[Rfam]
Source information
Clostridiales-1 RNA: a 155-nucleotide RNA sequence from Blautia liquoris. It is annotated as a small RNA.
RNA sequence: UGAUACCAGGGUCAAAAGGUCAUGCGUUUCAUGCUCGCAUGAAAAAGCAUGACCUUUUGACCCGAACAAACAUGAGAAUGCAACCCGAUUAGGAGUGAAAUUCGAAUGUUUUCCGGAUUGCGGGAGUACCUUGUGCGGAGCAAUCCGUGGUAUCA
Numbered sequence: 001u002g003a004u005a006c007c008a009g010g011g012u013c014a015a016a017a018g019g020u021c022a023u024g025c026g027u028u029u030c031a032u033g034c035u036c037g038c039a040u041g042a043a044a045a046a047g048c049a050u051g052a053c054c055u056u057u058u059g060a061c062c063c064g065a066a067c068a069a070a071c072a073u074g075a076g077a078a079u080g081c082a083a084c085c086c087g088a089u090u091a092g093g094a095g096u097g098a099a100a101u102u103c104g105a106a107u108g109u110u111u112u113c114c115g116g117a118u119u120g121c122g123g124g125a126g127u128a129c130c131u132u133g134u135g136c137g138g139a140g141c142a143a144u145c146c147g148u149g150g151u152a153u154c155a
Base pairs, nucleotide, nucleotide: 001155002154003153004152005151006150007149010062011061012060013059016056017055018054019053020052021051022050023049024048025047027045028044029042030041031040032039033038068111069110070109071108072107073106076103077102078101079100083096084095085093086092115146116145117144118143119142120141121140126136127135128134129133